[Rfam]
RNA sequence: GCCCGUGUGAACUCUGAUGGUCAGAGUGCAGACUUCAAAUCUGUAGUCGGUUAAUAGCCGAAGUGGUUCGAUUCCACCUCAUGGAC
Numbered sequence: 001g002c003c004c005g006u007g008u009g010a011a012c013u014c015u016g017a018u019g020g021u022c023a024g025a026g027u028g029c030a031g032a033c034u035u036c037a038a039a040u041c042u043g044u045a046g047u048c049g050g051u052u053a054a055u056a057g058c059c060g061a062a063g064u065g066g067u068u069c070g071a072u073u074c075c076a077c078c079u080c081a082u083g084g085a086c
Base pairs, nucleotide, nucleotide: 001086003084004083005082006081007080009078012026013025014024015023016022017021027045028044029043030042031041032040047061048060049059050058051057063077064076065075066074